RNA sequence: CGAAUAAUAGGUGAUGGUGUUCACCUUUAACCAUUUAUCACAGAUAAAUUAAUGACGCCUACUAAAAG
Numbered sequence: 001c002g003a004a005u006a007a008u009a010g011g012u013g014a015u016g017g018u019g020u021u022c023a024c025c026u027u028u029a030a031c032c033a034u035u036u037a038u039c040a041c042a043g044a045u046a047a048a049u050u051a052a053u054g055a056c057g058c059c060u061a062c063u064a065a066a067a068g
Stems, first nucleotide, its partner, number of pairs: 010025004016059006033049006
RNA: Fluoride riboswitch aptamer (crcB RNA motif)